[Rfam]
RNA: Antisense RNA which regulates isiA expression
Organism: Xenococcus sp. PCC 7305
RNA sequence: GAUAGCCGUAGAUCGUCAAAGGACUUAGUGUCGGAUCAGUAACUACGCGCAGAUCACCAAUCACAGAAUCGUAUAAUCCGCCGAAGAACAUCGCUUUGGCAACCAACAGCAAUGCUCCCGCACCUAGGAAAAUUAGAUGAUGACCCAAGAUAAAGCCUAGUUUUUUGGGGUCGUUCCA
Numbered sequence: 001g002a003u004a005g006c007c008g009u010a011g012a013u014c015g016u017c018a019a020a021g022g023a024c025u026u027a028g029u030g031u032c033g034g035a036u037c038a039g040u041a042a043c044u045a046c047g048c049g050c051a052g053a054u055c056a057c058c059a060a061u062c063a064c065a066g067a068a069u070c071g072u073a074u075a076a077u078c079c080g081c082c083g084a085a086g087a088a089c090a091u092c093g094c095u096u097u098g099g100c101a102a103c104c105a106a107c108a109g110c111a112a113u114g115c116u117c118c119c120g121c122a123c124c125u126a127g128g129a130a131a132a133u134u135a136g137a138u139g140a141u142g143a144c145c146c147a148a149g150a151u152a153a154a155g156c157c158u159a160g161u162u163u164u165u166u167g168g169g170g171u172c173g174u175u176c177c178a
Base pairs, nucleotide, nucleotide: 136175137174138173139172140171141170144169145168146167147166148165